The record is a 128-nucleotide RNA sequence from Pan troglodytes, which matches "Small nucleolar RNA SNORA77" in Rfam. Lineage of the source: Eukaryota > Vertebrata > Boreoeutheria > Hominidae > Pan. Rfam describes the family as follows. ACA63 (SNORA77) is a member of the H/ACA class of snoRNAs that guide the sites of modification of uridines to pseudouridines. This snoRNA was identified by computational screening and its expression in mouse experimentally verified by Northern blot and primer extension analysis. ACA63 is proposed to guide the pseudouridylation of 18S rRNA U814. It is annotated as an H/ACA-box small nucleolar RNA. Gene Ontology terms of the family: nucleolus and RNA processing.
[Rfam]
RNA sequence: GCAGACUCACUGUGCACCUGGCUGCAGGCCCAGGUGGGUGCUCGUUCCCUCUGCAAGAGAAACAAACAUUCCAGGGUGCUGUGGCUGCCUGACCUAUAAGGGCGACGCAGCUGCCUGGGGAUAGACAG
Dot-bracket structure: (((((........(((((((.(((......))).)))))))........)))))...............((((((..((((((..(((((.........))))).))))))..)))))).........